[Rfam]
Rfam assigns this 80-nucleotide RNA sequence from Nyctereutes procyonoides to the family "mir-872 microRNA precursor family". Its family is annotated with miRNA-mediated post-transcriptional gene silencing and RISC complex in the Gene Ontology. NCBI's taxonomy places the organism under Eukaryota, Mammalia, Theria, Canidae, Nyctereutes. It scores 80 bits against the family's covariance model.

RNA sequence: GUUUUGUUAGAAGGUUAUGUGUUAGCUCAAGACUUCAUUAUUUCCUGCCUGACCUAUUGAAGUAGCCUUCUAACGGUUAU
Numbered sequence: 001g002u003u004u005u006g007u008u009a010g011a012a013g014g015u016u017a018u019g020u021g022u023u024a025g026c027u028c029a030a031g032a033c034u035u036c037a038u039u040a041u042u043u044c045c046u047g048c049c050u051g052a053c054c055u056a057u058u059g060a061a062g063u064a065g066c067c068u069u070c071u072a073a074c075g076g077u078u079a080u
Base pairs, nucleotide, nucleotide: 001078004076006074007073008072009071010070012068013067014066015065016064017063018062023056024055025054027052028051029050031048